[Rfam]
RNA sequence: CUUUGUUCCUGGGGGAGCCGCAAAUCCGCGGCUGAGACGGUGCCGGCGCACCGAACCCUUUCGAACCUGAUCCGGGUCAUGCCGGCGUAGGAAACGGAACCAUGCGCGCCC
Numbered sequence: 001c002u003u004u005g006u007u008c009c010u011g012g013g014g015g016a017g018c019c020g021c022a023a024a025u026c027c028g029c030g031g032c033u034g035a036g037a038c039g040g041u042g043c044c045g046g047c048g049c050a051c052c053g054a055a056c057c058c059u060u061u062c063g064a065a066c067c068u069g070a071u072c073c074g075g076g077u078c079a080u081g082c083c084g085g086c087g088u089a090g091g092a093a094a095c096g097g098a099a100c101c102a103u104g105c106g107c108g109c110c111c
Base pairs, nucleotide, nucleotide: 006099007098008097009096011059012058013057014056017032018031019030020029021028039052040051041050042049043048066091067090068089069088072085073084074083075082